[Rfam]
RNA sequence: GGGGGCGUUCUGGAUUCGACAGGUAUAGGUCGAGCUUGAACUGCGCUUCGUGGGUUGCGGCCACGUAAAAACGCUACCCAAUUUUUAUCUGCAAAAGAUAACAAUUCUUACGCUUUAGCUGCUUAAUUGUAGCUUAACGUAGAUCCGUCCGUUACGGCCCAGGUAGCGGGGUUCGGGUCUCAAAAUCAUGGGCUACGCUGCGACUUCCCGCCUGAAGGAAGCAGAAGAGAUUAACCAGGCUUAGCUAAUCACGGUUGCCUUGUCAAACGGCGUUUUGGUUAGUGAAAUUCAAAUGGUUUGACUAUGAGCGUAGAGGUUCGGGUGGCGAUGUGCUUGGACGCGGGUUCGAUCCCCGCCGCCUCCAUAA
Numbered sequence: 001g002g003g004g005g006c007g008u009u010c011u012g013g014a015u016u017c018g019a020c021a022g023g024u025a026u027a028g029g030u031c032g033a034g035c036u037u038g039a040a041c042u043g044c045g046c047u048u049c050g051u052g053g054g055u056u057g058c059g060g061c062c063a064c065g066u067a068a069a070a071a072c073g074c075u076a077c078c079c080a081a082u083u084u085u086u087a088u089c090u091g092c093a094a095a096a097g098a099u100a101a102c103a104a105u106u107c108u109u110a111c112g113c114u115u116u117a118g119c120u121g122c123u124u125a126a127u128u129g130u131a132g133c134u135u136a137a138c139g140u141a142g143a144u145c146c147g148u149c150c151g152u153u154a155c156g157g158c159c160c161a162g163g164u165a166g167c168g169g170g171g172u173u174c175g176g177g178u179c180u181c182a183a184a185a186u187c188a189u190g191g192g193c194u195a196c197g198c199u200g201c202g203a204c205u206u207c208c209c210g211c212c213u214g215a216a217g218g219a220a221g222c223a224g225a226a227g228a229g230a231u232u233a234a235c236c237a238g239g240c241u242u243a244g245c246u247a248a249u250c251a252c253g254g255u256u257g258c259c260u261u262g263u264c265a266a267a268c269g270g271c272g273u274u275u276u277g278g279u280u281a282g283u284g285a286a287a288u289u290c291a292a293a294u295g296g297u298u299u300g301a302c303u304a305u306g307a308g309c310g311u312a313g314a315g316g317u318u319c320g321g322g323u324g325g326c327g328a329u330g331u332g333c334u335u336g337g338a339c340g341c342g343g344g345u346u347c348g349a350u351c352c353c354c355g356c357c358g359c360c361u362c363c364a365u366a367a
Stems, first nucleotide, its partner, number of pairs: 001363007020336008034323009044310005049065005054077002057074003114137002117134006142179006148170008157193005202222001205219002210240005244283008253274001257271003262302004340356005
RNA: transfer-messenger RNA